Rfam assigns this 175-nucleotide RNA from Propionispora sp. 2/2-37 to the family "Lysine riboswitch aptamer". Riboswitches are metabolite binding domains within certain messenger RNAs that serve as precision sensors for their corresponding targets. A search with the family's covariance model found it, with a score of 118 bits. The source organism's lineage runs through Bacteria, Negativicutes, Selenomonadales, Sporomusaceae and Propionispora. Pairs were carried over by alignment from the consensus structure, which is taken from published work. Rfam links the family to the GO term lysine biosynthetic process.
[Rfam]
RNA sequence: GGGUGGAGUAGAGGUGCGAACAAAAAGAGUACUUUCAGUAAGAGUGGUAUCAAUGAUCUGAAAGGAAAGGGUUGUUUGCCGAAGUGUGAUAGGUUACCGAGCCUUUUACACUGGUCUUACAUCGAACAGGUCUAAGACUGUCAUCAAAUUAUUUUGGUGGAGCGCUAUCUCAAAU
Dot-bracket structure: .....(.((((....((((((((........(((((((...................))))))).......))))))))...(((((((.((((......)))).)))))))(((((((.(((.....))).))))))).(((((((......)))))))....)))).).....